[Rfam]
RNA sequence: ACAGAGGAAUCCGGAAAUCUUGAAAAGAGUAGGAA
Numbered sequence: 001a002c003a004g005a006g007g008a009a010u011c012c013g014g015a016a017a018u019c020u021u022g023a024a025a026a027g028a029g030u031a032g033g034a035a
Stems, first nucleotide, its partner, number of pairs: 003020003010034003
This 35-nucleotide RNA belongs to the Rfam family "DUF805b RNA". The family's consensus secondary structure is taken from published work. By type it is a cis-regulatory element.